[Rfam]
RNA sequence: ACUCUCUGAUCUAUGCUGAGGCUGAAAAACUCGGAGAGUAUGUGCUGUCAUCAGCUUCGACUCUGUCCUGUGAGUUGGGAGUUAAAUAACAGCACAAGAUUG
Numbered sequence: 001a002c003u004c005u006c007u008g009a010u011c012u013a014u015g016c017u018g019a020g021g022c023u024g025a026a027a028a029a030c031u032c033g034g035a036g037a038g039u040a041u042g043u044g045c046u047g048u049c050a051u052c053a054g055c056u057u058c059g060a061c062u063c064u065g066u067c068c069u070g071u072g073a074g075u076u077g078g079g080a081g082u083u084a085a086a087u088a089a090c091a092g093c094a095c096a097a098g099a100u101u102g
Base pairs, nucleotide, nucleotide: 041096042095043094044093045092046091047090053083054082055081056080057079058078060075061074062073063072
RNA: Small nucleolar RNA snoR97